[Rfam]
RNA sequence: AUAAAUUUAAUAACUGCCAUCCAUAUAAGCCCGAUAAUAUGGUUCGGGCGUUUCUACGAGAUUACCAUAAAUAUCUCUGCUAUGGGUGAAUCCGAUUAAUAG
Number, nucleotide and partner (000 for none) at each position: 001a000002u000003a000004a000005a000006u000007u000008u000009a000010a000011u000012a000013a000014c000015u000016g000017c000018c088019a087020u086021c085022c084023a083024u082025a081026u000027a000028a000029g049030c048031c047032c046033g045034a044035u000036a000037a000038u000039a000040u000041g000042g000043u000044u034045c033046g032047g031048g030049c029050g000051u000052u000053u000054c000055u000056a000057c000058g078059a000060g076061a000062u000063u073064a072065c000066c000067a000068u000069a000070a000071a000072u064073a063074u000075c000076u060077c000078u058079g000080c000081u025082a024083u023084g022085g021086g020087u019088g018089a000090a000091u000092c000093c000094g000095a000096u000097u000098a000099a000100u000101a000102g000
RNA: Purine riboswitch aptamer